[Rfam]
RNA sequence: AAAAUCCUGCGAUGUACGUUUCGGUUUCUUUUGUUUUAAACCAAUGAUUGUUUCUCGGGAAAUCCAUAUUGAAGCGCGGCUGACAUGCCCCCGAAAAGGGACUUCAAAAACGUUUCUGCGAUCACCCACCUGCUAAAGCAGGUUUGAAACUAUUAAACCGGACGGCAUUUGCGGGUUUUCU
Numbered sequence: 001a002a003a004a005u006c007c008u009g010c011g012a013u014g015u016a017c018g019u020u021u022c023g024g025u026u027u028c029u030u031u032u033g034u035u036u037u038a039a040a041c042c043a044a045u046g047a048u049u050g051u052u053u054c055u056c057g058g059g060a061a062a063u064c065c066a067u068a069u070u071g072a073a074g075c076g077c078g079g080c081u082g083a084c085a086u087g088c089c090c091c092c093g094a095a096a097a098g099g100g101a102c103u104u105c106a107a108a109a110a111c112g113u114u115u116c117u118g119c120g121a122u123c124a125c126c127c128a129c130c131u132g133c134u135a136a137a138g139c140a141g142g143u144u145u146g147a148a149a150c151u152a153u154u155a156a157a158c159c160g161g162a163c164g165g166c167a168u169u170u171g172c173g174g175g176u177u178u179u180c181u
Base pairs, nucleotide, nucleotide: 002179003178004177006175007174008173009172010171011170012168013167014166015165017164018163019162033150034149035148037146038145039144040143041142042141057127058126059125062122063121064120068117071116072115073114074113075112076111083104088100089099090098

Rfam assigns this 181-nucleotide RNA sequence from Paenibacillus sp. HGF7 to the family "6S / SsrS RNA".
NCBI's taxonomy places the organism under Bacteria, Bacilli, Caryophanales, Paenibacillaceae, Paenibacillus.
It is annotated as a non-coding RNA gene.
A reference for the family is Wassarman and Storz (2000), "6S RNA regulates E. coli RNA polymerase activity", Cell.
From the family's description: E. coli 6S RNA was the first non coding RNA to be sequenced, but its function was unknown until recently.